Rfam assigns this 161-nucleotide sequence from Eubacteriaceae bacterium CHKCI004 to the family "Clostridiales-1 RNA". The base pairs follow the family's consensus structure, which is taken from published work. It scores 138 bits against the family's covariance model. The organism belongs to Eubacteriaceae, within Bacteria. Rfam classes the family as a small RNA.
[Rfam]
RNA sequence: UAACCACCAGGCCAUCAAAACAUGCGUCUGCUCGUGCUUGCACGAAAGCAGAUGCGUGUUUUAGAGGGCCGCCCCCACAUGAGCAUGAAGCUCGAUAGAGCGGGAAUGCGAAUGAGGGGAGGAUUGCGGGAGCGCGAAGCGCGGAGCAAUCCGGGUGGUUA
Numbered sequence: 001u002a003a004c005c006a007c008c009a010g011g012c013c014a015u016c017a018a019a020a021c022a023u024g025c026g027u028c029u030g031c032u033c034g035u036g037c038u039u040g041c042a043c044g045a046a047a048g049c050a051g052a053u054g055c056g057u058g059u060u061u062u063a064g065a066g067g068g069c070c071g072c073c074c075c076c077a078c079a080u081g082a083g084c085a086u087g088a089a090g091c092u093c094g095a096u097a098g099a100g101c102g103g104g105a106a107u108g109c110g111a112a113u114g115a116g117g118g119g120a121g122g123a124u125u126g127c128g129g130g131a132g133c134g135c136g137a138a139g140c141g142c143g144g145a146g147c148a149a150u151c152c153g154g155g156u157g158g159u160u161a
Base pairs, nucleotide, nucleotide: 001161002160003159004158005157006156007155011069012068013067017062018061019060020059021058022057023056024055025054026053027052028051029050030049031048032047033044034043035042036041073119074118075117076116078114079113080112083109084108085107086106090101091100092099093098121152122151123150124149125148126147127146132142133141134140135139